Annotation: The record is a 108-nucleotide sequence from Vibrio thalassae, which matches "Qrr RNA" in Rfam. The base pairs follow the family's consensus structure, which is taken from published work. For this family Rfam cites "The Small RNA Chaperone Hfq and Multiple Small RNAs Control Quorum Sensing in Vibrio harveyi and Vibrio cholerae" (Lenz et al., Cell, 2004). About the family: This family represents a set of small RNAs (the Qrr RNAs) that are thought to be involved in the regulation of quorum sensing in Vibrio species. It is believed that these RNAs, guided by a protein, Hfq, can mediate the destabilisation of the quorum-sensing master regulators LuxR/HapR mRNAs. Rfam 15.1 lists 148 matches to the family in 70 species.

[Rfam]
RNA sequence: UGACCCUCUGAUUUAAGGGUCACCUAGCCAACUGACGUUGUUAGUGAACACCUCUUGUUCACAUGUUAUAUAGCCAAUCGCCUUGUUUUUGCGAUUGGCUUUUUUCUU
Dot-bracket structure: ((((((..........))))))................(((..(((((((.....))))))).....)))...((((((((.........))))))))..........
Numbered sequence: 001u002g003a004c005c006c007u008c009u010g011a012u013u014u015a016a017g018g019g020u021c022a023c024c025u026a027g028c029c030a031a032c033u034g035a036c037g038u039u040g041u042u043a044g045u046g047a048a049c050a051c052c053u054c055u056u057g058u059u060c061a062c063a064u065g066u067u068a069u070a071u072a073g074c075c076a077a078u079c080g081c082c083u084u085g086u087u088u089u090u091g092c093g094a095u096u097g098g099c100u101u102u103u104u105u106c107u108u
Stems, first nucleotide, its partner, number of pairs: 001022006039070003044062007074098008